The record is a 185-nucleotide sequence from Glycine max, which matches "small nucleolar RNA snoR127" in Rfam.
On this family, see Chen and Wu, Nucleic Acids Res 2009: "Mining small RNA sequencing data: a new approach to identify small nucleolar RNAs in Arabidopsis".
Gene Ontology terms of the family: RNA processing and nucleolus.
Pairs were carried over by alignment from the consensus structure, which was predicted with RNAalifold.
By type it is a C/D-box small nucleolar RNA.
The match comes from Rfam's covariance-model search (79 bits).
The organism belongs to Glycine subgen. Soja, within Eukaryota.
RNA sequence: CUGGAAUGAUGUGACUUAGCCAAAUCGGAUAUUCAUGUGCUCCAUGUGGCAACAAACAUAUUUUUAAAGCUUGCUCUCAUAGUAAAACUAAAGCAUGUGGCAAGCUUUGAUUGAUGUUGAUGACCCUCAUGUUGAAGCGCAUUUCCCUGAUGAUAAACAAGGAGAUCGGUUGUUUCCUGACCAGA
Numbered sequence: 001c002u003g004g005a006a007u008g009a010u011g012u013g014a015c016u017u018a019g020c021c022a023a024a025u026c027g028g029a030u031a032u033u034c035a036u037g038u039g040c041u042c043c044a045u046g047u048g049g050c051a052a053c054a055a056a057c058a059u060a061u062u063u064u065u066a067a068a069g070c071u072u073g074c075u076c077u078c079a080u081a082g083u084a085a086a087a088c089u090a091a092a093g094c095a096u097g098u099g100g101c102a103a104g105c106u107u108u109g110a111u112u113g114a115u116g117u118u119g120a121u122g123a124c125c126c127u128c129a130u131g132u133u134g135a136a137g138c139g140c141a142u143u144u145c146c147c148u149g150a151u152g153a154u155a156a157a158c159a160a161g162g163a164g165a166u167c168g169g170u171u172g173u174u175u176c177c178u179g180a181c182c183a184g185a
Base pairs, nucleotide, nucleotide: 001184002183003182004181